6S / SsrS RNA: a 191-nucleotide sequence from Ureibacillus sinduriensis.
RNA sequence: UUAAAGCUGCGUUGUACGUAUAAUAUUAAGUUUUAACCUUUAAGCUGUAACAGGGAGUUUUAGAUCAAAGAUGGAAUGGCGGGCAUCACACCGAGGUGAAUGAUGAUGAACAGGAAAUCUUUUGCGAACACCCACUUUGAGGAGUGGUGGUUAAAAACUUUCUAUAAUCAUUACGGCAAGGCGGCUCCUAA
Numbered sequence: 001u002u003a004a005a006g007c008u009g010c011g012u013u014g015u016a017c018g019u020a021u022a023a024u025a026u027u028a029a030g031u032u033u034u035a036a037c038c039u040u041u042a043a044g045c046u047g048u049a050a051c052a053g054g055g056a057g058u059u060u061u062a063g064a065u066c067a068a069a070g071a072u073g074g075a076a077u078g079g080c081g082g083g084c085a086u087c088a089c090a091c092c093g094a095g096g097u098g099a100a101u102g103a104u105g106a107u108g109a110a111c112a113g114g115a116a117a118u119c120u121u122u123u124g125c126g127a128a129c130a131c132c133c134a135c136u137u138u139g140a141g142g143a144g145u146g147g148u149g150g151u152u153a154a155a156a157a158c159u160u161u162c163u164a165u166a167a168u169c170a171u172u173a174c175g176g177c178a179a180g181g182c183g184g185c186u187c188c189u190a191a
Base pairs, nucleotide, nucleotide: 005186006185007184008183009182010181012179013178014177015176017175018174019173029159030158031157032156033154034153035152036151037150038149053133054132055131057129058128059127060126064123067122068121069120070119071118072117078111084105085104086103087102088101
The source organism's lineage runs through Bacteria, Bacillati, Bacillota, Caryophanaceae and Ureibacillus sinduriensis. About the family: E. coli 6S RNA was the first non coding RNA to be sequenced, but its function was unknown until recently. It consists of 184 nucleotides that fold into an extended hairpin structure with a large single-stranded internal bulge.